[Rfam]
RNA sequence: AAGGCUUUACGUUAAUUAAAGUGUUUGAGUUGCAUUCAAUUGAUGUUGGAUAAAAUCCUGCAAGCCUUA
Dot-bracket structure: (((((((...(((......)))..((((.......)))).....((.((.......)).))))))))).
Numbered sequence: 001a002a003g004g005c006u007u008u009a010c011g012u013u014a015a016u017u018a019a020a021g022u023g024u025u026u027g028a029g030u031u032g033c034a035u036u037c038a039a040u041u042g043a044u045g046u047u048g049g050a051u052a053a054a055a056u057c058c059u060g061c062a063a064g065c066c067u068u069a
Stems, first nucleotide, its partner, number of pairs: 001068007011022003025039004045061002048058002